Source information
This 301-nucleotide sequence from Hibiscus trionum belongs to the Rfam family "Plant signal recognition particle RNA". It scores 206 bits against the family's covariance model. A reference for the family is Wild et al. (2002), "Towards the structure of the mammalian signal recognition particle", Curr Opin Struct Biol. NCBI's taxonomy places the organism under Eukaryota, Streptophyta, Mesangiospermae, eudicotyledons, Hibiscus.
RNA sequence: GCCGAGUGGAGUUACGUCUGCUUGUAACCCAAGUGGGGGCAAUAAUAUGGUUGGACAUUGGUUUGAUUUGCUGAGUUGGGCACAUCUGGUCUUGAUCACGGCUUGCCCGUUCCAAGCUAGGAGUUGAGUCUUGAAACUUGUGCGGAAGCCUGGGUUUCGUGAUUCCUGGAGAGGAAGGCACAGCGUGAGGCUGGUUUCACAGAGCAGCGACAACUUCCCUUUCUUGGCAGUGGAAGGAUAACAAGAUGUUGCCACUUGGGUCCAUCAUAGCUCAGUGCCUUCUAAACCAAUUUACAUUUUU
Numbered sequence: 001g002c003c004g005a006g007u008g009g010a011g012u013u014a015c016g017u018c019u020g021c022u023u024g025u026a027a028c029c030c031a032a033g034u035g036g037g038g039g040c041a042a043u044a045a046u047a048u049g050g051u052u053g054g055a056c057a058u059u060g061g062u063u064u065g066a067u068u069u070g071c072u073g074a075g076u077u078g079g080g081c082a083c084a085u086c087u088g089g090u091c092u093u094g095a096u097c098a099c100g101g102c103u104u105g106c107c108c109g110u111u112c113c114a115a116g117c118u119a120g121g122a123g124u125u126g127a128g129u130c131u132u133g134a135a136a137c138u139u140g141u142g143c144g145g146a147a148g149c150c151u152g153g154g155u156u157u158c159g160u161g162a163u164u165c166c167u168g169g170a171g172a173g174g175a176a177g178g179c180a181c182a183g184c185g186u187g188a189g190g191c192u193g194g195u196u197u198c199a200c201a202g203a204g205c206a207g208c209g210a211c212a213a214c215u216u217c218c219c220u221u222u223c224u225u226g227g228c229a230g231u232g233g234a235a236g237g238a239u240a241a242c243a244a245g246a247u248g249u250u251g252c253c254a255c256u257u258g259g260g261u262c263c264a265u266c267a268u269a270g271c272u273c274a275g276u277g278c279c280u281u282c283u284a285a286a287c288c289a290a291u292u293u294a295c296a297u298u299u300u301u
Base pairs, nucleotide, nucleotide: 001040002039003038004023005022006021007020008019009018010017028037029036030035047301049299050298052296053295055293057291058290059289060288062285063284065282066281069277070276071275072274073273074272075271076270077269078263079262080261081260083258084257087254088253089252091251098249099248100247102245103244104243105242107237108236110235111234112233113232114231116228117227118226119225120224121223122222123221126165127164128163129162130161132159133158134157135156136155137154138153139152140151142149143148166171173218174217175216176215177214184209185208186207191202192201193200